Notes: Rfam assigns this 92-nucleotide RNA from Ensifer fredii to the family "Rhizobiales sRNA Atu_Ti1". The organism belongs to Ensifer fredii, within Bacteria.
[Rfam]
RNA sequence: GUCCAGUUUGCGGCGGACCAAAGCCAAAAGCCUGUGAAGGCGAUUGCGACAGCCGGCCACAUGCGGGUUACGAGGCCCAUGAGGCCGGCUGU
Numbered sequence: 001g002u003c004c005a006g007u008u009u010g011c012g013g014c015g016g017a018c019c020a021a022a023g024c025c026a027a028a029a030g031c032c033u034g035u036g037a038a039g040g041c042g043a044u045u046g047c048g049a050c051a052g053c054c055g056g057c058c059a060c061a062u063g064c065g066g067g068u069u070a071c072g073a074g075g076c077c078c079a080u081g082a083g084g085c086c087g088g089c090u091g092u
Stems, first nucleotide, its partner, number of pairs: 001018004023047002026044001031039001049092010062081002065078004